[Rfam]
RNA: MIR2593 microRNA precursor family
RNA sequence: UUAUAAGCAACUUUUCACUUUUUAGAUUCAUUAAAUAAAUGAUGUAUAUGGUUUAUAAUAAAGACUACAUACAUCAUUUAUUCAAUGAACCUAAAAAGUGAAAAAUUGCUUAUAA
Numbered sequence: 001u002u003a004u005a006a007g008c009a010a011c012u013u014u015u016c017a018c019u020u021u022u023u024a025g026a027u028u029c030a031u032u033a034a035a036u037a038a039a040u041g042a043u044g045u046a047u048a049u050g051g052u053u054u055a056u057a058a059u060a061a062a063g064a065c066u067a068c069a070u071a072c073a074u075c076a077u078u079u080a081u082u083c084a085a086u087g088a089a090c091c092u093a094a095a096a097a098g099u100g101a102a103a104a105a106u107u108g109c110u111u112a113u114a115a
Base pairs, nucleotide, nucleotide: 002114003113004112005111006110007109009107010106012104013103015101016100017099018098019097020096021095022094023093024092025091027089028088029087030086031085032084034082035081036080037079038078039077040076041075042074043073044072049067050066051065052064